[Rfam]
RNA sequence: AAUUGAAAAAGGCAAACCUGUUGAAAGAUAGGGACGCAAAGCCACGAAUCUAAAGCCACACAGGCCAUGAUAGUCGGGUUGCCAAG
Dot-bracket structure: ...........((...((((((....))))))...))..((((.((((((....(((.....)))...)))..)))))))......